[Rfam]
RNA sequence: CUGAAUUUGAAGUCAAAACCGUAGACAGUGGGUGCGAAAGCUUAAUUUCCCACCGAGGUACAAUAUAAAGAAUAUUGACCUCGUCUUGAGUCUAGCAUGAAUUUAGAAUAAGAUGAGGUUUUUCCUUGUGGAG
Numbered sequence: 001c002u003g004a005a006u007u008u009g010a011a012g013u014c015a016a017a018a019c020c021g022u023a024g025a026c027a028g029u030g031g032g033u034g035c036g037a038a039a040g041c042u043u044a045a046u047u048u049c050c051c052a053c054c055g056a057g058g059u060a061c062a063a064u065a066u067a068a069a070g071a072a073u074a075u076u077g078a079c080c081u082c083g084u085c086u087u088g089a090g091u092c093u094a095g096c097a098u099g100a101a102u103u104u105a106g107a108a109u110a111a112g113a114u115g116a117g118g119u120u121u122u123u124c125c126u127u128g129u130g131g132a133g
Stems, first nucleotide, its partner, number of pairs: 028053005034041002079118010
Background
Rfam assigns this 133-nucleotide RNA from [Eubacterium] nodatum to the family "Ribosomal protein L10 leader". This family is a putative r-protein leader autoregulatory structure found in B. subtilis and other low-GC Gram-positive bacteria. It is located in the 5' untranslated regions of mRNAs encoding ribosomal proteins L10 and L12 (rplJ-rplL). A Rho-independent transcription terminator structure that is probably involved in regulation is included at the 3' end. The family's consensus secondary structure was predicted with CMfinder. Rfam links the family to the GO term regulation of gene expression.